[Rfam]
RNA sequence: UGCGUGGUUUAGGUAGUCUCAUGUUGUUGGGAUUUGGCAUCCUGGCUCUGCAACAAGAAACUGCCUGGAUUACGUC
Numbered sequence: 001u002g003c004g005u006g007g008u009u010u011a012g013g014u015a016g017u018c019u020c021a022u023g024u025u026g027u028u029g030g031g032a033u034u035u036g037g038c039a040u041c042c043u044g045g046c047u048c049u050g051c052a053a054c055a056a057g058a059a060a061c062u063g064c065c066u067g068g069a070u071u072a073c074g075u076c
Base pairs, nucleotide, nucleotide: 003074004073005072006071007070008069009068010067011066012065013064014063015062016061017060019058022055023054024053025052026051027050029048030047031046